This 95-nucleotide sequence from Callorhinus ursinus belongs to the Rfam family "Small nucleolar RNA SNORD116". A reference for the family is Cavaille et al. (2000), "Identification of brain-specific and imprinted small nucleolar RNA genes exhibiting an unusual genomic organization", Proc Natl Acad Sci U S A. The organism belongs to Callorhinus, within Eukaryota. The family's consensus secondary structure was predicted with PFOLD.
RNA sequence: GGAUCAAUGAUGACUCCCUCAUUCUGCAUUCCUUGGAAAAGCUGAACAAAAUGAGGGAGAACUCCCUAUCGUCAUUCUCUUUGAAACUGAUGUCC
Numbered sequence: 001g002g003a004u005c006a007a008u009g010a011u012g013a014c015u016c017c018c019u020c021a022u023u024c025u026g027c028a029u030u031c032c033u034u035g036g037a038a039a040a041g042c043u044g045a046a047c048a049a050a051a052u053g054a055g056g057g058a059g060a061a062c063u064c065c066c067u068a069u070c071g072u073c074a075u076u077c078u079c080u081u082u083g084a085a086a087c088u089g090a091u092g093u094c095c
Stems, first nucleotide, its partner, number of pairs: 001095004027057001029055003033049003